A member of the RNA family "Small nucleolar RNA SNORA15" from Sorex araneus, 134 nucleotides long. The source organism's lineage runs through Eukaryota, Eumetazoa, Sarcopterygii, Soricinae and Sorex. For this family Rfam cites "RNomics: an experimental approach that identifies 201 candidates for novel, small, non-messenger RNAs in mouse" (Huttenhofer et al., EMBO J, 2001). The family has 22 seed sequences and 974 matches in Rfam 15.1. From the family's description: ACA15 is a member of the H/ACA class of snoRNA that guide the sites of modification of uridines to pseudouridines. Its family is annotated with RNA processing and nucleolus in the Gene Ontology. The sequence is in the family's curated seed alignment. It is annotated as an H/ACA-box small nucleolar RNA. Pairs were carried over by alignment from the consensus structure, which was predicted with RNAfold.

RNA sequence: GCAUGGCUGAAUACUGUGUUCUUUUUAUCAAUAUUUUACACAGCCAGACACCAUGCAAAAGUAAAGUUUUCCCUUGAAAAGGCUUUUGAUAUGUUGCUUUUUGUGGCAUAUCAUUAUUAAAAGUGGCUACAAAU
Numbered sequence: 001g002c003a004u005g006g007c008u009g010a011a012u013a014c015u016g017u018g019u020u021c022u023u024u025u026u027a028u029c030a031a032u033a034u035u036u037u038a039c040a041c042a043g044c045c046a047g048a049c050a051c052c053a054u055g056c057a058a059a060a061g062u063a064a065a066g067u068u069u070u071c072c073c074u075u076g077a078a079a080a081g082g083c084u085u086u087u088g089a090u091a092u093g094u095u096g097c098u099u100u101u102u103g104u105g106g107c108a109u110a111u112c113a114u115u116a117u118u119a120a121a122a123g124u125g126g127c128u129a130c131a132a133a134u
Stems, first nucleotide, its partner, number of pairs: 001056006014043006070126002072123001074121002076118002084116001087113010